[Rfam]
RNA sequence: GAUUUUGAUAUCUAAUAUAUUCGUAUAUCCCCGAAAAUAAGGUUUGGGGGUUUCUACAAGGGACCAUAAAUUCCUGACUACGAAUAGUGUGCUUUGGCAU
Numbered sequence: 001g002a003u004u005u006u007g008a009u010a011u012c013u014a015a016u017a018u019a020u021u022c023g024u025a026u027a028u029c030c031c032c033g034a035a036a037a038u039a040a041g042g043u044u045u046g047g048g049g050g051u052u053u054c055u056a057c058a059a060g061g062g063a064c065c066a067u068a069a070a071u072u073c074c075u076g077a078c079u080a081c082g083a084a085u086a087g088u089g090u091g092c093u094u095u096g097g098c099a100u
Stems, first nucleotide, its partner, number of pairs: 018086008029049007059075005
Dot-bracket structure: .................((((((((...(((((((.......))))))).........(((((.......)))))...))))))))..............
The record is a 100-nucleotide RNA sequence from Paenibacillus nuruki, which matches "Purine riboswitch aptamer" in Rfam.
A search with the family's covariance model found it, with a score of 75 bits.
The base pairs follow the family's consensus structure, which is taken from published work.